[Rfam]
c-di-AMP riboswitch aptamer (ydaO/yuaA leader): a 161-nucleotide RNA from Pristimantibacillus lignocellulolyticus. It scores 96 bits against the family's covariance model.
RNA sequence: UAAUAUAUUUCGCUUAAUUUUUCGUAUGAAAAAGCGGGGGAACCAAUCAGAAUCGGUUUUAUCGAUUUCCUGGGGUGAAUCAAGUCUGAAUCAUUAGACUGUAGGGCAACUCUCUAGCCCGAACCCGACAGCUAACCUCGUCAGCGUGAAAAGGAGAGAUG
Numbered sequence: 001u002a003a004u005a006u007a008u009u010u011c012g013c014u015u016a017a018u019u020u021u022u023c024g025u026a027u028g029a030a031a032a033a034g035c036g037g038g039g040g041a042a043c044c045a046a047u048c049a050g051a052a053u054c055g056g057u058u059u060u061a062u063c064g065a066u067u068u069c070c071u072g073g074g075g076u077g078a079a080u081c082a083a084g085u086c087u088g089a090a091u092c093a094u095u096a097g098a099c100u101g102u103a104g105g106g107c108a109a110c111u112c113u114c115u116a117g118c119c120c121g122a123a124c125c126c127g128a129c130a131g132c133u134a135a136c137c138u139c140g141u142c143a144g145c146g147u148g149a150a151a152a153g154g155a156g157a158g159a160u161g
Base pairs, nucleotide, nucleotide: 011146012145013144014143018033019032020031021030022029023028034141035140036139037138038137039136044072045071073126074125075124081101082100104120105119106118107117
The source organism's lineage runs through Bacteria, Bacillati, Bacillota, Bacilli and Pristimantibacillus (SeqCode).